Annotation
The family of this 76-nucleotide RNA sequence from Cnephaeus nilssonii is "mir-9229 microRNA precursor family". A search with the family's covariance model found it, with a score of 76 bits. Gene Ontology terms of the family: miRNA-mediated post-transcriptional gene silencing and RISC complex.
[Rfam]
RNA sequence: GAGACACGUUUCUGGUGCAGGACUUGUUUCAGGGGGGCUUUGGUGCUCUCUGAGUCUGCCUCCUGAAUGUGUCACU
Numbered sequence: 001g002a003g004a005c006a007c008g009u010u011u012c013u014g015g016u017g018c019a020g021g022a023c024u025u026g027u028u029u030c031a032g033g034g035g036g037g038c039u040u041u042g043g044u045g046c047u048c049u050c051u052g053a054g055u056c057u058g059c060c061u062c063c064u065g066a067a068u069g070u071g072u073c074a075c076u
Stems, first nucleotide, its partner, number of pairs: 001075001003073005009067003014062002017059003021056003029053008037044002